[Rfam]
Rfam assigns this 52-nucleotide sequence from Salinarimonas ramus to the family "DUF3800-VI RNA".
RNA sequence: CGGUUGGGAGGUCUGCCUUUGCAGACCGUCGGAGAGCUGCUCCGCCCGGCCG
Numbered sequence: 001c002g003g004u005u006g007g008g009a010g011g012u013c014u015g016c017c018u019u020u021g022c023a024g025a026c027c028g029u030c031g032g033a034g035a036g037c038u039g040c041u042c043c044g045c046c047c048g049g050c051c052g
Base pairs, nucleotide, nucleotide: 001052002051003050004049005048006047007046008045010027011026012025013024014023015022016021030044031043032042033041034040